[Rfam]
RNA sequence: CCUCUACUUUAACAUGGAGACGCUUGCUGUGACAUGCUACAAUUAAGUGCUUCCAUGUUUUAGUGUGG
Numbered sequence: 001c002c003u004c005u006a007c008u009u010u011a012a013c014a015u016g017g018a019g020a021c022g023c024u025u026g027c028u029g030u031g032a033c034a035u036g037c038u039a040c041a042a043u044u045a046a047g048u049g050c051u052u053c054c055a056u057g058u059u060u061u062a063g064u065g066u067g068g
Stems, first nucleotide, its partner, number of pairs: 002068002005065004011059009021049006028042001
RNA: mir-302 microRNA precursor family
Organism: Suricata suricatta